RNA: Small nucleolar RNA SNORA73 family
Organism: Triplophysa rosa
RNA sequence: CCAAUGUAGACAUCCUGUGAAAUGCCUCUCAUUUGGCUCUGUCUGUGUGGCGUAAGGGAGCGUAGCACAUUAGUGCUAUGACGUAUAGUCCCGUUCCACAACGUUGGAUAGCAAGGUUGUCCCUGGCCUUUGGCUGGUGUGGACAGCGUCCUGUAUAUUCCUAUACCUUUCCAGAGCCCUUUGGGCCGUUACUGGGGAGAUAAACCAUGCAAUGCACAACC
Dot-bracket structure: ((((((((((((.((...((......))......))...)))))..((((.....(((((.((.(.............)...)).)..))))...)))).)))))))............................................(((((..........((((((...((((...)))).......)))))).......)))))..........